[Rfam]
RNA sequence: GUACGAGCGGAAGCGCCAGGACUGAACCGUUUCUCAUUCAGCGGCGACAGUCGACGAGGACGAAAGCGAUCGAACCAUUCGGCGGAUGCUUUCGUGGCGGGCGAAGGGGAGCCAUGAACCUCUGUCACAAAACCCCGGGGUGACCCGGAUACAAACGGCAGAGGCCCUUCAAUG
Number, nucleotide and partner (000 for none) at each position: 001g000002u000003a000004c000005g000006a000007g000008c000009g000010g000011a000012a000013g000014c000015g000016c000017c000018a000019g000020g052021a051022c050023u049024g048025a000026a000027c000028c000029g000030u000031u000032u000033c000034u000035c000036a000037u000038u000039c000040a000041g000042c000043g000044g000045c000046g000047a000048c024049a023050g022051u021052c020053g000054a000055c000056g000057a000058g000059g000060a000061c094062g093063a092064a091065a090066g000067c000068g000069a000070u082071c081072g080073a079074a000075c000076c000077a000078u000079u073080c072081g071082g070083c000084g000085g000086a000087u000088g000089c000090u065091u064092u063093c062094g061095u114096g113097g112098c111099g000100g000101g000102c000103g000104a000105a000106g000107g000108g000109g000110a000111g098112c097113c096114a095115u000116g000117a000118a000119c164120c163121u162122c161123u160124g159125u158126c000127a000128c000129a000130a000131a000132a000133c000134c000135c148136c147137g146138g145139g144140g000141u000142g000143a000144c139145c138146c137147g136148g135149a000150u000151a000152c000153a000154a000155a000156c000157g000158g125159c124160a123161g122162a121163g120164g119165c000166c000167c000168u000169u000170c000171a000172a000173u000174g000

glmS glucosamine-6-phosphate activated ribozyme aptamer: a 174-nucleotide RNA sequence from Pyramidobacter sp. CG50-2. The family's consensus secondary structure is taken from published work. Rfam describes the family as follows. This entry contains a glucosamine-6-phosphate activated ribozyme that is found in the mRNA for GlmS. GlmS is an enzyme that uses fructose-6-phosphate and glutamine to generate glucosamine-6-phosphate. Lineage of the source: Bacteria > Thermotogati > Synergistota > Synergistales > Pyramidobacter. The match comes from Rfam's covariance-model search (77 bits). The family's RNA type in Rfam is riboswitch.